[Rfam]
RNA: Makes More Granules Regulator RNA (mmgR)
Organism: Stakelama tenebrarum
RNA sequence: AGAACCUGCCUUUCAGGCAUCCUCUCCUAAGACUUUCAAGGCCGCCUUCGGGCGGCCCUUUUUUUGUCUAGG
Numbered sequence: 001a002g003a004a005c006c007u008g009c010c011u012u013u014c015a016g017g018c019a020u021c022c023u024c025u026c027c028u029a030a031g032a033c034u035u036u037c038a039a040g041g042c043c044g045c046c047u048u049c050g051g052g053c054g055g056c057c058c059u060u061u062u063u064u065u066g067u068c069u070a071g072g
Stems, first nucleotide, its partner, number of pairs: 008018004040057007